[Rfam]
RNA sequence: GCGCAGCGCCGGGCCCCUCUGGUCAUGGUUUCCCGCUAUGGCGAUGUCGGAGCUGCUCC
Numbered sequence: 001g002c003g004c005a006g007c008g009c010c011g012g013g014c015c016c017c018u019c020u021g022g023u024c025a026u027g028g029u030u031u032c033c034c035g036c037u038a039u040g041g042c043g044a045u046g047u048c049g050g051a052g053c054u055g056c057u058c059c
Base pairs, nucleotide, nucleotide: 006053007052009050010049011048012047022042023041024040025039026038027037028036029035

Rfam assigns this 59-nucleotide RNA sequence from Devosia chinhatensis to the family "terC RNA". It is annotated as a cis-regulatory element.